[Rfam]
RNA: mir-181 microRNA precursor family
Organism: Xenopus tropicalis
RNA sequence: GGGCUUCAGAGAACAUUCAACGCUGUCGGUGAGUUUGAGAAAGUGUAAAAAUAUAAACCAUCGGCCGUUGACUGUACCCUGAGGCUUU
Number, nucleotide and partner (000 for none) at each position: 001g088002g087003g086004c084005u083006u082007c081008a080009g000010a000011g000012a000013a000014c074015a073016u000017u071018c070019a069020a068021c067022g066023c000024u000025g065026u064027c063028g062029g061030u060031g059032a000033g058034u057035u056036u055037g000038a000039g000040a000041a000042a000043g000044u000045g000046u000047a000048a000049a000050a000051a000052u000053a000054u000055a036056a035057a034058c033059c031060a030061u029062c028063g027064g026065c025066c022067g021068u020069u019070g018071a017072c000073u015074g014075u000076a000077c000078c000079c000080u008081g007082a006083g005084g004085c000086u003087u002088u001